Rfam assigns this 312-nucleotide RNA from Methanoplanus limicola to the family "Archaeal RNase P". NCBI's taxonomy places the organism under Archaea, Methanobacteriota, Methanomicrobia, Methanomicrobiaceae, Methanoplanus limicola. It is annotated as a ribozyme. Its Rfam clan is "RNaseP clan". About the family: Ribonuclease P (RNase P) is a ubiquitous endoribonuclease, found in archaea, bacteria and eukarya as well as chloroplasts and mitochondria. Its best characterised activity is the generation of mature 5'-ends of tRNAs by cleaving the 5'-leader elements of precursor-tRNAs. Cellular RNase Ps are ribonucleoproteins. RNA from bacterial RNase Ps retains its catalytic activity in the absence of the protein subunit, i.e. it is a ribozyme.
RNA sequence: GAGAGGGAGAGUGCGGCCGACGGCAGUAUCUAUUUACUGCUGAGGAAAGUCCCCACUCCGACCGGAAAUGAUGCUGCAUGCAAGUGCAGGUGGCGAGAGUCAUGGCUCUGGCACAGAAACGACACGGCCCUCUGCUUAGCUGAUGAGGCAGAAACAAACUGCCGAGGCAUUUUGAGGCAAAGGGAGACGAUGGAACGGUGAAUCCCUUCAGGAGCAAGCCGAACAGGAGCAUAACGGUAUUUUCGGACCGGUUCCGGGUACGGCGCACAGCUGAAUGCCGCAGAAACAUAAUGGGGCUUACUCCUCCCACUC
Numbered sequence: 001g002a003g004a005g006g007g008a009g010a011g012u013g014c015g016g017c018c019g020a021c022g023g024c025a026g027u028a029u030c031u032a033u034u035u036a037c038u039g040c041u042g043a044g045g046a047a048a049g050u051c052c053c054c055a056c057u058c059c060g061a062c063c064g065g066a067a068a069u070g071a072u073g074c075u076g077c078a079u080g081c082a083a084g085u086g087c088a089g090g091u092g093g094c095g096a097g098a099g100u101c102a103u104g105g106c107u108c109u110g111g112c113a114c115a116g117a118a119a120c121g122a123c124a125c126g127g128c129c130c131u132c133u134g135c136u137u138a139g140c141u142g143a144u145g146a147g148g149c150a151g152a153a154a155c156a157a158a159c160u161g162c163c164g165a166g167g168c169a170u171u172u173u174g175a176g177g178c179a180a181a182g183g184g185a186g187a188c189g190a191u192g193g194a195a196c197g198g199u200g201a202a203u204c205c206c207u208u209c210a211g212g213a214g215c216a217a218g219c220c221g222a223a224c225a226g227g228a229g230c231a232u233a234a235c236g237g238u239a240u241u242u243u244c245g246g247a248c249c250g251g252u253u254c255c256g257g258g259u260a261c262g263g264c265g266c267a268c269a270g271c272u273g274a275a276u277g278c279c280g281c282a283g284a285a286a287c288a289u290a291a292u293g294g295g296g297c298u299u300a301c302u303c304c305u306c307c308c309a310c311u312c
Base pairs, nucleotide, nucleotide: 001312002311003310005308006307007306008305009304010302011301012282013281014280015279016278017277021042022041023040024039025038026037027036028035047299048298049297051296052295053294054293055292056214057213058212059211064241065240069210070209071208073206074089075088076087077086078085090103091102092101093100094099104205105204109201111199112198125189126188128184129183130182131181133179134178135177148162149161218264219263220262221261226255227254228253229252230251